[Rfam]
RNA sequence: GAGUAGAUGCACCCUGAUGGUUUUCCUUCAACUUAGGUUGGGGGAAUUUUUUUU
Numbered sequence: 001g002a003g004u005a006g007a008u009g010c011a012c013c014c015u016g017a018u019g020g021u022u023u024u025c026c027u028u029c030a031a032c033u034u035a036g037g038u039u040g041g042g043g044g045a046a047u048u049u050u051u052u053u054u
Stems, first nucleotide, its partner, number of pairs: 003012002023046010

Shown here is a 54-nucleotide sequence from Planktothrix agardhii, a member of the family "Nitrogen stress-induced RNA 1". It scores 41 bits against the family's covariance model. On this family, see Ionescu et al., J Mol Biol 2010: "Heterocyst-specific transcription of NsiR1, a non-coding RNA encoded in a tandem array of direct repeats in cyanobacteria". The family's RNA type in Rfam is small RNA. Lineage of the source: Bacteria > Bacillati > Oscillatoriophycideae > Planktothrix > Planktothrix agardhii.